[Rfam]
The family of this 168-nucleotide sequence from Alloiococcus otitis is "Lysine riboswitch aptamer". The base pairs follow the family's consensus structure, which is taken from published work.
RNA sequence: AUAAAAAACAGAGGAGCGAAAAAGAUGACUAGCUAGGAAGAGGGUGAUUCCCCAAGAGGCCUAGCGAAAGGCUUUGUCGCCGAAGUUUCAAGACCCUCAUCAGGCUUGAUCCUGGGAUGCAGUUGAACAAGUUGCAAACUGUCACGAAGGUGGAGUACUGUCACUAGC
Numbered sequence: 001a002u003a004a005a006a007a008a009c010a011g012a013g014g015a016g017c018g019a020a021a022a023a024g025a026u027g028a029c030u031a032g033c034u035a036g037g038a039a040g041a042g043g044g045u046g047a048u049u050c051c052c053c054a055a056g057a058g059g060c061c062u063a064g065c066g067a068a069a070g071g072c073u074u075u076g077u078c079g080c081c082g083a084a085g086u087u088u089c090a091a092g093a094c095c096c097u098c099a100u101c102a103g104g105c106u107u108g109a110u111c112c113u114g115g116g117a118u119g120c121a122g123u124u125g126a127a128c129a130a131g132u133u134g135c136a137a138a139c140u141g142u143c144a145c146g147a148a149g150g151u152g153g154a155g156u157a158c159u160g161u162c163a164c165u166a167g168c
Base pairs, nucleotide, nucleotide: 008161009160010159011158016080017079018078019077021075022074023073024072032065033064034063035062036061037060084113085112088109089108090107091106092105094103114140115139118136119135120134121133122132123131124130142153143152144151145150